[Rfam]
RNA sequence: GGCUGUACCAGUCCAGCCCUUCUCUGGCUAGCUUUAGUCCAGUUAGGCCUGUUAAAGCUGCCAGUCGAAGAGCUGUGCUGGGCGGU
Numbered sequence: 001g002g003c004u005g006u007a008c009c010a011g012u013c014c015a016g017c018c019c020u021u022c023u024c025u026g027g028c029u030a031g032c033u034u035u036a037g038u039c040c041a042g043u044u045a046g047g048c049c050u051g052u053u054a055a056a057g058c059u060g061c062c063a064g065u066c067g068a069a070g071a072g073c074u075g076u077g078c079u080g081g082g083c084g085g086u
Stems, first nucleotide, its partner, number of pairs: 005083002010079003017072001019070004026062003030059007
This 86-nucleotide sequence from Eptatretus burgeri belongs to the Rfam family "mir-22 microRNA precursor family". Its family is annotated with RISC complex and miRNA-mediated post-transcriptional gene silencing in the Gene Ontology. It scores 61 bits against the family's covariance model. For this family Rfam cites "Identification of novel genes coding for small expressed RNAs" (Lagos-Quintana et al., Science, 2001). The organism belongs to Eptatretus, within Eukaryota.